[Rfam]
RNA: tRNA
Nucleotides: 084
Base pairs, nucleotide, nucleotide: 001083002082003081004080005079006078007077010026011025012024028044029043030042031041032040060076061075062074063073064072
Number, partner (000 for none) and nucleotide at each position: 001083g002082c003081g004080g005079g006078u007077g008000u009000g010026g011025c012024g013000g014000a015000a016000u017000u018000g019000g020000c021000a022000g023000a024012c025011g026010c027000g028044u029043a030042c031041g032040g033000u034000u035000c036000a037000g038000g039000u040032c041031c042030g043029u044028a045000u046000g047000g048000g049000g050000g051000c052000a053000a054000c055000c056000c057000c058000g059000u060076g061075a062074a063073g064072g065000u066000u067000c068000a069000a070000g071000u072064c073063c074062u075061u076060u077007c078006a079005c080004c081003c082002g083001c084000a